The record is a 112-nucleotide sequence from Methylocella silvestris, which matches "Glycine riboswitch aptamer" in Rfam. NCBI's taxonomy places the organism under Bacteria, Pseudomonadati, Pseudomonadota, Hyphomicrobiales, Methylocella silvestris. A search with the family's covariance model found it, with a score of 35 bits.

RNA sequence: CUCUGGAAAGCAGCCUUUCAUGCGCGAAAGGCUCACCGAAGGAGGCAGCCCCGCAGGCGCCCGCUCUCUUGAGGGUCAGCGCGGGGGAACGCUCUCAGGUUCCCGGACAGAG
Numbered sequence: 001c002u003c004u005g006g007a008a009a010g011c012a013g014c015c016u017u018u019c020a021u022g023c024g025c026g027a028a029a030g031g032c033u034c035a036c037c038g039a040a041g042g043a044g045g046c047a048g049c050c051c052c053g054c055a056g057g058c059g060c061c062c063g064c065u066c067u068c069u070u071g072a073g074g075g076u077c078a079g080c081g082c083g084g085g086g087g088a089a090c091g092c093u094c095u096c097a098g099g100u101u102c103c104c105g106g107a108c109a110g111a112g
Stems, first nucleotide, its partner, number of pairs: 001112005012033008035100003038096002042094003049087004